The record is a 72-nucleotide sequence from Xylanimonas allomyrinae, which matches "Fluoride riboswitch aptamer (crcB RNA motif)" in Rfam. The base pairs follow the family's consensus structure, which is taken from published work. The match comes from Rfam's covariance-model search (39 bits). Rfam links the family to the GO terms positive regulation of gene expression and response to fluoride.
RNA sequence: GCUGUGCCCGGCGAUGGAUCCCGCCGGGGCGCCAGCCCGAACCGCCGCGAGGCUGAUGGUUCCUGUCUCGAU
Numbered sequence: 001g002c003u004g005u006g007c008c009c010g011g012c013g014a015u016g017g018a019u020c021c022c023g024c025c026g027g028g029g030c031g032c033c034a035g036c037c038c039g040a041a042c043c044g045c046c047g048c049g050a051g052g053c054u055g056a057u058g059g060u061u062c063c064u065g066u067c068u069c070g071a072u
Stems, first nucleotide, its partner, number of pairs: 010025004016063003020059002044053003